[Rfam]
RNA sequence: CGGUUCGGAUGCUGUGAGGCCUCGGUCCGCUCGGUCCACGGUCCUGGCACACCUUCCCCGGUGUCAGGGCAGACGGGCGGGCGGGGACCUGACGGUAUCCGCCCUGGUGA
Numbered sequence: 001c002g003g004u005u006c007g008g009a010u011g012c013u014g015u016g017a018g019g020c021c022u023c024g025g026u027c028c029g030c031u032c033g034g035u036c037c038a039c040g041g042u043c044c045u046g047g048c049a050c051a052c053c054u055u056c057c058c059c060g061g062u063g064u065c066a067g068g069g070c071a072g073a074c075g076g077g078c079g080g081g082c083g084g085g086g087a088c089c090u091g092a093c094g095g096u097a098u099c100c101g102c103c104c105u106g107g108u109g110a
Stems, first nucleotide, its partner, number of pairs: 008099007018089002021086003025082009039072001041070010